Rfam assigns this 94-nucleotide sequence from Telmatocola sphagniphila to the family "Selenocysteine transfer RNA". Taxonomically the source falls in Telmatocola (Bacteria, Pseudomonadati, Planctomycetota, Gemmataceae). The base pairs follow the family's consensus structure, which is taken from published work. Rfam 15.1 lists 4,211 matches to the family in 3,344 species. The match comes from Rfam's covariance-model search (70 bits).

[Rfam]
RNA sequence: GGGAGUGUCUGUACGGCUGGUGCCGGCCCUGGUCUUCAAAAUCAGUGGGGGGUGUGAACAACGCUCCCAGUGGGUUCGAUUCCCAUACACUCCC
Numbered sequence: 001g002g003g004a005g006u007g008u009c010u011g012u013a014c015g016g017c018u019g020g021u022g023c024c025g026g027c028c029c030u031g032g033u034c035u036u037c038a039a040a041a042u043c044a045g046u047g048g049g050g051g052g053u054g055u056g057a058a059c060a061a062c063g064c065u066c067c068c069a070g071u072g073g074g075u076u077c078g079a080u081u082c083c084c085a086u087a088c089a090c091u092c093c094c
Stems, first nucleotide, its partner, number of pairs: 001094008014025004029045005048068005071085004